[Rfam]
RNA sequence: GUUUUAUAUUAGUAACUGCCAAAGAUAGCAGGUACCGUAAGGUAUAAGAAGAAAACACCUGCCGAGGAAGUCGAAAAUUCUUGUAUUGAAUGUGUAUGGAGCUGUCGCAUCAAUGUGCGACAGCUUCAAGUGUUUAAUC
Numbered sequence: 001g002u003u004u005u006a007u008a009u010u011a012g013u014a015a016c017u018g019c020c021a022a023a024g025a026u027a028g029c030a031g032g033u034a035c036c037g038u039a040a041g042g043u044a045u046a047a048g049a050a051g052a053a054a055a056c057a058c059c060u061g062c063c064g065a066g067g068a069a070g071u072c073g074a075a076a077a078u079u080c081u082u083g084u085a086u087u088g089a090a091u092g093u094g095u096a097u098g099g100a101g102c103u104g105u106c107g108c109a110u111c112a113a114u115g116u117g118c119g120a121c122a123g124c125u126u127c128a129a130g131u132g133u134u135u136a137a138u139c
Stems, first nucleotide, its partner, number of pairs: 028062006034043003101124010

A member of the RNA family "Ribosomal protein L10 leader" from Mediterraneibacter hominis, 139 nucleotides long. About the family: This family is a putative r-protein leader autoregulatory structure found in B. subtilis and other low-GC Gram-positive bacteria. It is located in the 5' untranslated regions of mRNAs encoding ribosomal proteins L10 and L12 (rplJ-rplL). A Rho-independent transcription terminator structure that is probably involved in regulation is included at the 3' end.